[Rfam]
RNA sequence: UUGGUUUAAAUCGAUGUGGCUCUACACUUUGAAAAUUGAAUUCAAAUAAAGUGGUGAGAUAUACAUUGAUUUCAUCCGA
Dot-bracket structure: ((((.(.(((((((((((....(((((((((...............))))))).)).....))))))))))).).))))

The record is a 79-nucleotide RNA from Medicago truncatula, which matches "MIR5269 microRNA precursor family" in Rfam. NCBI's taxonomy places the organism under Eukaryota, Embryophyta, Spermatophyta, fabids, Medicago. The family has 2 seed sequences and 389 matches in Rfam 15.1.